The record is a 62-nucleotide sequence from Mytilus coruscus, which matches "mir-1986 microRNA precursor family" in Rfam.
Rfam 15.1 lists 8 matches to the family in 8 species.
The source organism's lineage runs through Eukaryota, Protostomia, Lophotrochozoa, Mytilida and Mytilus.
Pairs were carried over by alignment from the consensus structure, which was predicted with RNAalifold.
A search with the family's covariance model found it, with a score of 56 bits.

RNA sequence: AGUCGCGGGUCGUGGGGGAGACCACUGUUUCAUUAUAAGGUGGAUUUCCCAAGAUCCGUGAU
Numbered sequence: 001a002g003u004c005g006c007g008g009g010u011c012g013u014g015g016g017g018g019a020g021a022c023c024a025c026u027g028u029u030u031c032a033u034u035a036u037a038a039g040g041u042g043g044a045u046u047u048c049c050c051a052a053g054a055u056c057c058g059u060g061a062u
Stems, first nucleotide, its partner, number of pairs: 004060008013051006022043005028037001
Dot-bracket structure: ...((((((((.((((((...(((((.(........).)))))..)))))).))))))))..